[Rfam]
RNA sequence: UACACACUUCCUUAGAUCCACUUCUGGGGUAACAUCAUUUCUCUUGACACAACCAACUUCAUCUUUGUCUUUCUUUGACCUCAGAGGUUGCAUUCCUGAUUGUCUGAUCAGGUUGUGCUCUUGAGGUCUUAUGAUUGUACUUUGGUUGAGCUGGCAGGUGUCUUGGGAUAUUGUUAGCCAGCAACACUGUGUGUUGUGUUUAAUCGGAAGUGCUUGAGUCAUAGGUGUGUUAUAAUAAUAUACCUCCAGCGGGGACAGGCUGGUCAGUGGAGCCUCCUGUAGGCUUUCUUGCCACUGAUCUGACAUCCCUGGUGGGGACAUU
Numbered sequence: 001u002a003c004a005c006a007c008u009u010c011c012u013u014a015g016a017u018c019c020a021c022u023u024c025u026g027g028g029g030u031a032a033c034a035u036c037a038u039u040u041c042u043c044u045u046g047a048c049a050c051a052a053c054c055a056a057c058u059u060c061a062u063c064u065u066u067g068u069c070u071u072u073c074u075u076u077g078a079c080c081u082c083a084g085a086g087g088u089u090g091c092a093u094u095c096c097u098g099a100u101u102g103u104c105u106g107a108u109c110a111g112g113u114u115g116u117g118c119u120c121u122u123g124a125g126g127u128c129u130u131a132u133g134a135u136u137g138u139a140c141u142u143u144g145g146u147u148g149a150g151c152u153g154g155c156a157g158g159u160g161u162c163u164u165g166g167g168a169u170a171u172u173g174u175u176a177g178c179c180a181g182c183a184a185c186a187c188u189g190u191g192u193g194u195u196g197u198g199u200u201u202a203a204u205c206g207g208a209a210g211u212g213c214u215u216g217a218g219u220c221a222u223a224g225g226u227g228u229g230u231u232a233u234a235a236u237a238a239u240a241u242a243c244c245u246c247c248a249g250c251g252g253g254g255a256c257a258g259g260c261u262g263g264u265c266a267g268u269g270g271a272g273c274c275u276c277c278u279g280u281a282g283g284c285u286u287u288c289u290u291g292c293c294a295c296u297g298a299u300c301u302g303a304c305a306u307c308c309c310u311g312g313u314g315g316g317g318a319c320a321u322u
Stems, first nucleotide, its partner, number of pairs: 002230007011218005019212008028179002032174002037171001040168004046162005181199001182196005244317005251310004262300009273282001